Notes:
Rfam assigns this 84-nucleotide RNA sequence from Glycine max to the family "Small nucleolar RNA R11/Z151". The family has 5 seed sequences and 802 matches in Rfam 15.1.
RNA sequence: UGGCUUAUGAUGAUCAUAUAAUUAUCUUAGCGGAUUUCAGUGAGAUUUCUAUCAAUGAUCUGAUUGUUACACACACUGAAGCCU
Number, nucleotide and partner (000 for none) at each position: 001u000002g083003g082004c081005u080006u000007a000008u000009g000010a000011u000012g000013a000014u000015c000016a000017u000018a000019u000020a000021a000022u000023u000024a000025u000026c000027u000028u000029a000030g000031c000032g000033g000034a000035u000036u000037u000038c000039a000040g000041u000042g000043a000044g000045a000046u000047u000048u000049c000050u000051a000052u000053c000054a000055a000056u000057g000058a000059u000060c000061u000062g000063a000064u000065u000066g000067u000068u000069a000070c000071a000072c000073a000074c000075a000076c000077u000078g000079a000080a005081g004082c003083c002084u000